[Rfam]
RNA: U11 spliceosomal RNA
RNA sequence: AAAAAGGGUGUCUGCUUGCUACAUGACACGCAGUUUAUUUGAGGCCGUGCGGAAUCGCUAUCAAGAGAUUCUGGACACGCAAUUUUUGGAUCCUGGCGCUGCUGAUUGCUUUAACCUUUGGCGCUCCU
Numbered sequence: 001a002a003a004a005a006g007g008g009u010g011u012c013u014g015c016u017u018g019c020u021a022c023a024u025g026a027c028a029c030g031c032a033g034u035u036u037a038u039u040u041g042a043g044g045c046c047g048u049g050c051g052g053a054a055u056c057g058c059u060a061u062c063a064a065g066a067g068a069u070u071c072u073g074g075a076c077a078c079g080c081a082a083u084u085u086u087u088g089g090a091u092c093c094u095g096g097c098g099c100u101g102c103u104g105a106u107u108g109c110u111u112u113a114a115c116c117u118u119u120g121g122c123g124c125u126c127c128u
Stems, first nucleotide, its partner, number of pairs: 008078005013021002022049004027044001031041003050073007096126001098124002101122005108116001110114001